[Rfam]
RNA sequence: AUGUUGUAGCUGGCGUUUGUUUUAUUUGGUAGCUGUAAUUGAAUCUAUCAUAAGACACACGCGGCUAUUACAU
Numbered sequence: 001a002u003g004u005u006g007u008a009g010c011u012g013g014c015g016u017u018u019g020u021u022u023u024a025u026u027u028g029g030u031a032g033c034u035g036u037a038a039u040u041g042a043a044u045c046u047a048u049c050a051u052a053a054g055a056c057a058c059a060c061g062c063g064g065c066u067a068u069u070a071c072a073u
Stems, first nucleotide, its partner, number of pairs: 001073004006068001008066004013062003018057002021055003027050005
Description: This 73-nucleotide RNA sequence from Ceratitis capitata belongs to the Rfam family "mir-970 microRNA precursor family". It scores 79 bits against the family's covariance model.